The family of this 98-nucleotide RNA from Streptomyces sparsogenes is "Glycine riboswitch aptamer".
RNA sequence: AGACCCCGUGCGGGAGAGUCCUCCGCCGACGUCGUCGGAGGCGCCGAAGGAGCAAAUCCUCCCCGGAAUCUCUCAGGCACACGUACCGCGCGGGUGAG
Numbered sequence: 001a002g003a004c005c006c007c008g009u010g011c012g013g014g015a016g017a018g019u020c021c022u023c024c025g026c027c028g029a030c031g032u033c034g035u036c037g038g039a040g041g042c043g044c045c046g047a048a049g050g051a052g053c054a055a056a057u058c059c060u061c062c063c064c065g066g067a068a069u070c071u072c073u074c075a076g077g078c079a080c081a082c083g084u085a086c087c088g089c090g091c092g093g094g095u096g097a098g
Stems, first nucleotide, its partner, number of pairs: 006093008020041006043078003046074002050072003057065001

Annotation:
A search with the family's covariance model found it, with a score of 70 bits.